[Rfam]
RNA sequence: GACUCCAGGGGGACAAGGGCAUCGCCUCCUCUUGUUGAAAGACACUCCCUCCUGAUGGAGAAUGGACACUCCCCUCCUGCAGCGGCCUGCCCUCAGCAGUCCUGGUAGGGCAGUGUGGACGCUGUAGGCUGCUGGAGCUCCCGUCGCCCCAGACAGAAAGUACCCCAGAGC
Dot-bracket structure: ..(((..((((....((((.....(.(.(.......).).).....)))).((....(.((..((......)).))...)((((((....(((((((....(..............)...)))).)))..))))...))...........))..........)))).))).
FGF-1 internal ribosome entry site (IRES): a 171-nucleotide sequence from Pteropus alecto. The literature on the family includes a 2004 paper in Mol Cell Biol by Martineau et al., "Internal Ribosome Entry Site Structural Motifs Conserved among Mammalian Fibroblast Growth Factor 1 Alternatively Spliced mRNAs". The family has 6 seed sequences and 127 matches in Rfam 15.1. Rfam describes the family as follows. This family represents the FGF-1 internal ribosome entry site (IRES). The FGF-1 IRES is present in the 5' UTR of the mRNA and allows cap-independent translation. It is thought that FGF-1 IRES activity is strictly controlled and highly tissue specific. Pairs were carried over by alignment from the consensus structure, which is taken from published work. The match comes from Rfam's covariance-model search (82 bits).